[Rfam]
RNA: Flavo-1 RNA
RNA sequence: UAGCAGCAGGGAUAGUAGCGGAAAUCCUUUUUGCAGUCAGCAAGUGCGUGGGGCAAAAAGAUUGAAGCGAUAGCCCGGCCCGAG
Numbered sequence: 001u002a003g004c005a006g007c008a009g010g011g012a013u014a015g016u017a018g019c020g021g022a023a024a025u026c027c028u029u030u031u032u033g034c035a036g037u038c039a040g041c042a043a044g045u046g047c048g049u050g051g052g053g054c055a056a057a058a059a060g061a062u063u064g065a066a067g068c069g070a071u072a073g074c075c076c077g078g079c080c081c082g083a084g
Base pairs, nucleotide, nucleotide: 009076010075011074013072014071018068019067023063024062025061026060029058030057031056032055033054034053